[Rfam]
RNA sequence: GUGCCUUAAACUAAUGAGUAAGGAAAAUAUAGAGCUUUGGUAACGCUUAGCUAUGCUAAAUUAAAGCGACCAUAUUUUUGAAGGGGCACAGGUCGUCCUGGAGCUGCUUGAUCUACUUUUUCGAGCGGCUCGGUGAAGCGAUCUACCUC
Dot-bracket structure: ...(((((..........))))).........((((..(......)..)))).((((.......))))..............((((...(((((((..(..(((((.((((.........)))).)))))..)....))))))).))))

Background
This 149-nucleotide RNA belongs to the Rfam family "U12 minor spliceosomal RNA". The literature on the family includes a 1997 paper in Trends Biochem Sci by Tarn and Steitz, "Pre-mRNA splicing: the discovery of a new spliceosome doubles the challenge". Rfam 15.1 lists 2,106 matches to the family in 1,170 species. The family's RNA type in Rfam is spliceosomal small nuclear RNA. The family is grouped with related families in Rfam's "U2 clan".